[Rfam]
About this RNA
This 72-nucleotide RNA sequence from Neotoma lepida belongs to the Rfam family "mir-344 microRNA precursor family". A reference for the family is Chiang et al. (2010), "Mammalian microRNAs: experimental evaluation of novel and previously annotated genes", Genes Dev.

RNA sequence: UUUCCAGAUAGGUUCCUGGCUAGAAUCCAGCUCUCAGCUGGUUCCAGUCUCUAGCUAGGGCCUAACUACAAA
Numbered sequence: 001u002u003u004c005c006a007g008a009u010a011g012g013u014u015c016c017u018g019g020c021u022a023g024a025a026u027c028c029a030g031c032u033c034u035c036a037g038c039u040g041g042u043u044c045c046a047g048u049c050u051c052u053a054g055c056u057a058g059g060g061c062c063u064a065a066c067u068a069c070a071a072a
Stems, first nucleotide, its partner, number of pairs: 007066001009064001011062004017057008027041005